[Rfam]
RNA sequence: CAGGCGGGUUCCGAAAAGCCUAAGACAGAGUAGGAA
Numbered sequence: 001c002a003g004g005c006g007g008g009u010u011c012c013g014a015a016a017a018g019c020c021u022a023a024g025a026c027a028g029a030g031u032a033g034g035a036a
Base pairs, nucleotide, nucleotide: 002021003020004019005018010035011034012033